[Rfam]
The record is a 169-nucleotide RNA sequence from Propionivibrio dicarboxylicus, which matches "Vibrio RNA AS7" in Rfam. A search with the family's covariance model found it, with a score of 100 bits. About the family: Identified by direct cloning an parallel sequencing experiments with 5S/tRNA depletion. Confirmed by Northern blot. The organism belongs to Propionivibrio, within Bacteria. Pairs were carried over by alignment from the consensus structure, which was predicted with RNAfold. On this family, see Liu et al., Nucleic Acids Res 2009: "Experimental discovery of sRNAs in Vibrio cholerae by direct cloning, 5S/tRNA depletion and parallel sequencing".
RNA sequence: GGUGUCUGCACCGCCAGCACGUCGCGCGUCGCGAUCUCGCCGCCGAUGUGGUAGGGCAGGCCGCAGUUGGCGAAGGAGACGUCGGGGCCGCGUUCGAUUACGGUGAUCUCGGCGUCUUCGCAGAGACGGCGGGCCCGGGCGGCGAAGGAAGCACCGCCGGCGACGCCGC
Numbered sequence: 001g002g003u004g005u006c007u008g009c010a011c012c013g014c015c016a017g018c019a020c021g022u023c024g025c026g027c028g029u030c031g032c033g034a035u036c037u038c039g040c041c042g043c044c045g046a047u048g049u050g051g052u053a054g055g056g057c058a059g060g061c062c063g064c065a066g067u068u069g070g071c072g073a074a075g076g077a078g079a080c081g082u083c084g085g086g087g088c089c090g091c092g093u094u095c096g097a098u099u100a101c102g103g104u105g106a107u108c109u110c111g112g113c114g115u116c117u118u119c120g121c122a123g124a125g126a127c128g129g130c131g132g133g134c135c136c137g138g139g140c141g142g143c144g145a146a147g148g149a150a151g152c153a154c155c156g157c158c159g160g161c162g163a164c165g166c167c168g169c
Stems, first nucleotide, its partner, number of pairs: 001167006008161002012024002015021001032056001035053001037051004060071003075155002087143002092140005099133001101131002104128002107125001110123001112121003